[Rfam]
RNA sequence: CACUCAUCAAGACCGGCUGAGGGAUUAGGCCCUUUGACGCCGGGGCAACCAUCGGGUUUCACCACCCGAAACGGUGCCAACUCCUGCGGGGUCCUUCGGGGUCGCGAGAGAUGAGUG
Numbered sequence: 001c002a003c004u005c006a007u008c009a010a011g012a013c014c015g016g017c018u019g020a021g022g023g024a025u026u027a028g029g030c031c032c033u034u035u036g037a038c039g040c041c042g043g044g045g046c047a048a049c050c051a052u053c054g055g056g057u058u059u060c061a062c063c064a065c066c067c068g069a070a071a072c073g074g075u076g077c078c079a080a081c082u083c084c085u086g087c088g089g090g091g092u093c094c095u096u097c098g099g100g101g102u103c104g105c106g107a108g109a110g111a112u113g114a115g116u117g
Base pairs, nucleotide, nucleotide: 001117002116003115004114005113006112007111008110013043014042015041016040017039021032022031023030026086027085028084029083044078045077046076047075049074050073052069053068054067055066056065082109087106088105090103091102092101